This 32-nucleotide sequence belongs to the Rfam family "L31-Coriobacteria ribosomal protein leader". By type it is a cis-regulatory leader. The literature on the family includes a 2020 paper in BMC Microbiol by Eckert and Weinberg, "Discovery of 20 novel ribosomal leader candidates in bacteria and archaea".
[Rfam]
RNA sequence: GCCUUGGUCGGAAACCAAGGCCCGUAAAGGAG
Numbered sequence: 001g002c003c004u005u006g007g008u009c010g011g012a013a014a015c016c017a018a019g020g021c022c023c024g025u026a027a028a029g030g031a032g
Stems, first nucleotide, its partner, number of pairs: 001021008